[Rfam]
RNA: Bacterial large subunit ribosomal RNA, nucleotides 684 to 913
Organism: Kocuria coralli
RNA sequence: GAGUUAGUGUCAUGUCGCGAGGUUAACCCGUGUGGGGUAGUCGUAGCGAAAGCGAGUCUGAAUAGGGCGGUUGAGUGGCGUGAUCUAGACCCGAAGCGAAGUGAUCUACCCAUGGCCAGGUUGAAGCGCGUGUAAGAGCGUGUGGAGGACCGAACCCACUUCAGUUGAAAAUGGAGGGGAUGAGCUGUGGGUAGGGGUGAAAGGCCAAUCAAACUUCGUGAUAGCUGGUU
Numbered sequence: 001g002a003g004u005u006a007g008u009g010u011c012a013u014g015u016c017g018c019g020a021g022g023u024u025a026a027c028c029c030g031u032g033u034g035g036g037g038u039a040g041u042c043g044u045a046g047c048g049a050a051a052g053c054g055a056g057u058c059u060g061a062a063u064a065g066g067g068c069g070g071u072u073g074a075g076u077g078g079c080g081u082g083a084u085c086u087a088g089a090c091c092c093g094a095a096g097c098g099a100a101g102u103g104a105u106c107u108a109c110c111c112a113u114g115g116c117c118a119g120g121u122u123g124a125a126g127c128g129c130g131u132g133u134a135a136g137a138g139c140g141u142g143u144g145g146a147g148g149a150c151c152g153a154a155c156c157c158a159c160u161u162c163a164g165u166u167g168a169a170a171a172u173g174g175a176g177g178g179g180a181u182g183a184g185c186u187g188u189g190g191g192u193a194g195g196g197g198u199g200a201a202a203g204g205c206c207a208a209u210c211a212a213a214c215u216u217c218g219u220g221a222u223a224g225c226u227g228g229u230u
Base pairs, nucleotide, nucleotide: 005087006086007085009084010083011082012081013080014079015078016077017076018075021042022041023040024039027036028035029034046053047052056068057067058066059065090228091227093225097218098217099216100215101214102213106194107193108192109191110190111189112188113187114186115185116184117182119151120150121149122148126143127142128141129140130139131138155179156178157177159176160175161174162173163172196206197205198204
Dot-bracket structure: ....(((.((((((((((..((((..(((....)))..))))...((....))..((((.....))))......)))))))))))))..((.(...((((((...((((((((((((.((((...((((((......))))))....))))...(((.(((((........))))))))..).))))))))))).(((.....)))......))))))......).))..